RNA sequence: AUUCAAAUUUUAAUACUAAUUCAUAUAAUCGCGGGGAUAUGGCCUGCAAGUUUCUACCGGUUUACCGUAAAUAAACCGACUAUGAGUCUUUGAUAAUGAAUG
Numbered sequence: 001a002u003u004c005a006a007a008u009u010u011u012a013a014u015a016c017u018a019a020u021u022c023a024u025a026u027a028a029u030c031g032c033g034g035g036g037a038u039a040u041g042g043c044c045u046g047c048a049a050g051u052u053u054c055u056a057c058c059g060g061u062u063u064a065c066c067g068u069a070a071a072u073a074a075a076c077c078g079a080c081u082a083u084g085a086g087u088c089u090u091u092g093a094u095a096a097u098g099a100a101u102g
Stems, first nucleotide, its partner, number of pairs: 019087007029049001031047005058078007

Purine riboswitch aptamer: a 102-nucleotide RNA from Ornithinibacillus caprae.
Gene Ontology term of the family: purine nucleobase biosynthetic process.
NCBI's taxonomy places the organism under Bacteria, Bacillati, Bacillota, Bacilli, Ornithinibacillus.